[Rfam]
RNA sequence: GCUGUUUUCGGGUGGAUGACUCCGCAAUUUCAAGACUUGACAAGAUGAAAAGAAAUUGCACAGUAUCCAUCUGCAAUCCGCC
Number, nucleotide and partner (000 for none) at each position: 001g000002c000003u000004g000005u000006u000007u000008u000009c073010g072011g071012g070013u069014g068015g067016a066017u065018g000019a064020c063021u000022c000023c000024g059025c058026a057027a056028u055029u054030u053031c052032a000033a000034g000035a000036c000037u000038u000039g000040a000041c000042a000043a000044g000045a000046u000047g000048a000049a000050a000051a000052g031053a030054a029055a028056u027057u026058g025059c024060a000061c000062a000063g020064u019065a017066u016067c015068c014069a013070u012071c011072u010073g009074c000075a000076a000077u000078c000079c000080g000081c000082c000
RNA: mir-363 microRNA precursor family
Organism: Pleuronectes platessa